[Rfam]
RNA sequence: UCAUCAGGUGGGAUAAUCCUUACCUGUUUCUCCUUCUGGAGAACAGAUUAGAAAAUGAUGAUUUGGAGCUCGCAUGAAACGUGAUUAUGCGUCUCUGCGUAGCCAGGACUUGCAACACCCUGGUUCGCUCCUGUCUGAU
Numbered sequence: 001u002c003a004u005c006a007g008g009u010g011g012g013a014u015a016a017u018c019c020u021u022a023c024c025u026g027u028u029u030c031u032c033c034u035u036c037u038g039g040a041g042a043a044c045a046g047a048u049u050a051g052a053a054a055a056u057g058a059u060g061a062u063u064u065g066g067a068g069c070u071c072g073c074a075u076g077a078a079a080c081g082u083g084a085u086u087a088u089g090c091g092u093c094u095c096u097g098c099g100u101a102g103c104c105a106g107g108a109c110u111u112g113c114a115a116c117a118c119c120c121u122g123g124u125u126c127g128c129u130c131c132u133g134u135c136u137g138a139u
Stems, first nucleotide, its partner, number of pairs: 024046003028043006076095002079092003082087001099128002101125007
This 139-nucleotide sequence from Otolemur garnettii belongs to the Rfam family "U8 small nucleolar RNA".
Its family is annotated with RNA processing and nucleolus in the Gene Ontology.